6S-Flavo RNA: a 109-nucleotide sequence from Psychroflexus salis.
RNA sequence: ACUCAACGCUUAAAUAAAUAAAAAGGGUGAGUUUCAAUUGUAAAAGCAUGCCUCCUUAGAGUGGAUCCUUGAUCAGUUGUGUAGCCCUAAUCCUGUUUUAAAGGAGUUU
Numbered sequence: 001a002c003u004c005a006a007c008g009c010u011u012a013a014a015u016a017a018a019u020a021a022a023a024a025g026g027g028u029g030a031g032u033u034u035c036a037a038u039u040g041u042a043a044a045a046g047c048a049u050g051c052c053u054c055c056u057u058a059g060a061g062u063g064g065a066u067c068c069u070u071g072a073u074c075a076g077u078u079g080u081g082u083a084g085c086c087c088u089a090a091u092c093c094u095g096u097u098u099u100a101a102a103g104g105a106g107u108u109u
Stems, first nucleotide, its partner, number of pairs: 024088005035079005044070003051064002054061001

The match comes from Rfam's covariance-model search (102 bits).